[Rfam]
Record summary
The family of this 68-nucleotide RNA from Jannaschia aquimarina is "L2-Alphaproteobacteria ribosomal protein leader". NCBI's taxonomy places the organism under Bacteria, Alphaproteobacteria, Rhodobacterales, Roseobacteraceae, Jannaschia. On this family, see Eckert and Weinberg, BMC Microbiol 2020: "Discovery of 20 novel ribosomal leader candidates in bacteria and archaea". It is annotated as a cis-regulatory leader. The base pairs follow the family's consensus structure, which is taken from published work.
RNA sequence: GGGGACCUACGGGGCCCUAUACCCACGGCGGGGCGACCCGUCUGACAUAGCAAACGGAAGACAGCUGA
Numbered sequence: 001g002g003g004g005a006c007c008u009a010c011g012g013g014g015c016c017c018u019a020u021a022c023c024c025a026c027g028g029c030g031g032g033g034c035g036a037c038c039c040g041u042c043u044g045a046c047a048u049a050g051c052a053a054a055c056g057g058a059a060g061a062c063a064g065c066u067g068a
Stems, first nucleotide, its partner, number of pairs: 001018004006014003027042006